This 116-nucleotide sequence from Oryza sativa belongs to the Rfam family "MIR397 microRNA precursor family". Rfam links the family to the GO terms RISC complex and miRNA-mediated post-transcriptional gene silencing. Rfam's curators put it in the seed alignment. Lineage of the source: Eukaryota > Viridiplantae > Magnoliopsida > Oryzoideae > Oryza sativa. Pairs were carried over by alignment from the consensus structure, which was predicted with WAR.
RNA sequence: AGGGAAGGCAUUAUUGAGUGCAGCGUUGAUGAACCUGCCGGCCGGCUAAAUUAAUUAGCAAGAAAGUCUGAAACUGGCUCAAAGGUUCACCAGCACUGCACCCAAUCACGCCUUUG
Numbered sequence: 001a002g003g004g005a006a007g008g009c010a011u012u013a014u015u016g017a018g019u020g021c022a023g024c025g026u027u028g029a030u031g032a033a034c035c036u037g038c039c040g041g042c043c044g045g046c047u048a049a050a051u052u053a054a055u056u057a058g059c060a061a062g063a064a065a066g067u068c069u070g071a072a073a074c075u076g077g078c079u080c081a082a083a084g085g086u087u088c089a090c091c092a093g094c095a096c097u098g099c100a101c102c103c104a105a106u107c108a109c110g111c112c113u114u115u116g
Base pairs, nucleotide, nucleotide: 006113007112008111009110011108013106014105015104016103018101019100020099021098022097023096025094026093027092028091030089031088032087